[Rfam]
RNA sequence: AUAUGAGGUUCACUUAGAGCCUCGCCAAUCUGGGGAGAUUAGGCAUCCAUUUGGGUAGCAACAGCACCCUUCUGGAGAGACGGCAUCCAGAGGCCGGGUCAUCAGCCCCGGUCGGAACCGUUUC
Numbered sequence: 001a002u003a004u005g006a007g008g009u010u011c012a013c014u015u016a017g018a019g020c021c022u023c024g025c026c027a028a029u030c031u032g033g034g035g036a037g038a039u040u041a042g043g044c045a046u047c048c049a050u051u052u053g054g055g056u057a058g059c060a061a062c063a064g065c066a067c068c069c070u071u072c073u074g075g076a077g078a079g080a081c082g083g084c085a086u087c088c089a090g091a092g093g094c095c096g097g098g099u100c101a102u103c104a105g106c107c108c109c110g111g112u113c114g115g116a117a118c119c120g121u122u123u124c
Stems, first nucleotide, its partner, number of pairs: 005023007025042001027040005046076004053070003058067001077124007092113007

Shown here is a 124-nucleotide RNA sequence, a member of the family "LAGLIDADG-2 RNA". Pairs were carried over by alignment from the consensus structure, which is taken from published work.